RNA sequence: CGAUGCUGCUUUCUUGGACGUUUCCUCCCUAAACUCGGGCGGCACCCACGGGCGCCGCCCUUUUUUUGCCUGCG
Numbered sequence: 001c002g003a004u005g006c007u008g009c010u011u012u013c014u015u016g017g018a019c020g021u022u023u024c025c026u027c028c029c030u031a032a033a034c035u036c037g038g039g040c041g042g043c044a045c046c047c048a049c050g051g052g053c054g055c056c057g058c059c060c061u062u063u064u065u066u067u068g069c070c071u072g073c074g
Base pairs, nucleotide, nucleotide: 008019010017011016038059039058040057041056042055043054045052046051
Dot-bracket structure: .......(.((....)).)..................((((((.((....)).))))))...............